Shown here is a 64-nucleotide RNA from Myotis brandtii, a member of the family "mir-9242 microRNA precursor family". The organism belongs to Myotis, within Eukaryota. Its family is annotated with miRNA-mediated post-transcriptional gene silencing and RISC complex in the Gene Ontology.

RNA sequence: GGCCUCCCUCUGUGGGGUGAUCAAUCAUGGAGCCCCCAGGUUGAUCACUGUGCAGAGGGAGGCC
Numbered sequence: 001g002g003c004c005u006c007c008c009u010c011u012g013u014g015g016g017g018u019g020a021u022c023a024a025u026c027a028u029g030g031a032g033c034c035c036c037c038a039g040g041u042u043g044a045u046c047a048c049u050g051u052g053c054a055g056a057g058g059g060a061g062g063c064c
Stems, first nucleotide, its partner, number of pairs: 001064014016049011029036002
Dot-bracket structure: ((((((((((((((.(((((((((((..((....))..))))))))))).))))))))))))))